This 63-nucleotide RNA from Noviherbaspirillum pedocola belongs to the Rfam family "Fluoride riboswitch aptamer (crcB RNA motif)". Its family is annotated with positive regulation of gene expression and response to fluoride in the Gene Ontology. The literature on the family includes a 2012 paper in Science by Baker et al., "Widespread genetic switches and toxicity resistance proteins for fluoride". The match comes from Rfam's covariance-model search (52 bits).
[Rfam]
RNA sequence: CCCCGCUUCGGAGAUGGCAUUCCUCCCUUAACUGCCCUCAGGGCUGAUGAUGCCUACAUUGAU
Dot-bracket structure: .........[[[[..((((((.]]]].......(((.....)))....)))))).........
Numbered sequence: 001c002c003c004c005g006c007u008u009c010g011g012a013g014a015u016g017g018c019a020u021u022c023c024u025c026c027c028u029u030a031a032c033u034g035c036c037c038u039c040a041g042g043g044c045u046g047a048u049g050a051u052g053c054c055u056a057c058a059u060u061g062a063u
Stems, first nucleotide, its partner, number of pairs: 010026004016054006034044003